This 97-nucleotide RNA sequence from Apium graveolens belongs to the Rfam family "Plastid-rps12 3UTR RNA". From the family's description: Plastid rpl20 is a non-coding RNA (ncRNA) recognised in plastids. It was found in the three prime untranslated region (3UTR) of rps12 gene, its 3UTR location sugest a role in transcript maduration. The family's consensus secondary structure was predicted with LocARNA. On this family, see Richter et al., Plant Commun 2023: "Retrograde signaling in plants: A critical review focusing on the GUN pathway and beyond". Taxonomically the source falls in Apium (Eukaryota, Viridiplantae, Embryophyta, Apieae).
RNA sequence: GGUUUCCAUUGAUGCAAAUCCAAUCACCUCAAUUUAAGAUGAGAAGCAAUUCUCCAUUUGUAGCAAAUCAUUAUCCAUUAAGCGGAGAAAAUCCUAC
Dot-bracket structure: ........(((.........)))............................((((((..((((.......))))..)).....))))..........
Numbered sequence: 001g002g003u004u005u006c007c008a009u010u011g012a013u014g015c016a017a018a019u020c021c022a023a024u025c026a027c028c029u030c031a032a033u034u035u036a037a038g039a040u041g042a043g044a045a046g047c048a049a050u051u052c053u054c055c056a057u058u059u060g061u062a063g064c065a066a067a068u069c070a071u072u073a074u075c076c077a078u079u080a081a082g083c084g085g086a087g088a089a090a091a092u093c094c095u096a097c
Stems, first nucleotide, its partner, number of pairs: 009023003052087004056078002060074004